[Rfam]
RNA sequence: UGUGGCCACAUGGGACUCGCAGAGGAAGCAUGCUCGUUACAGGUCCUGCCAGGUUAUUCAUAAUCUGCAAUUUUUCCA
Numbered sequence: 001u002g003u004g005g006c007c008a009c010a011u012g013g014g015a016c017u018c019g020c021a022g023a024g025g026a027a028g029c030a031u032g033c034u035c036g037u038u039a040c041a042g043g044u045c046c047u048g049c050c051a052g053g054u055u056a057u058u059c060a061u062a063a064u065c066u067g068c069a070a071u072u073u074u075u076c077c078a
Base pairs, nucleotide, nucleotide: 013046014045015044016043017042022077024075025074026073027072028040030038050067051066052065053064054063055062056061

The record is a 78-nucleotide sequence from Sphenodon punctatus, which matches "Mammalian CPEB3 ribozyme" in Rfam. The family's consensus secondary structure is taken from published work. It scores 37 bits against the family's covariance model. Rfam describes the family as follows. The mammalian CPEB3 ribozyme is a self cleaving RNA located in the second intron of the CPEB3 gene which belongs to a family of genes regulating messenger RNA polyadenylation.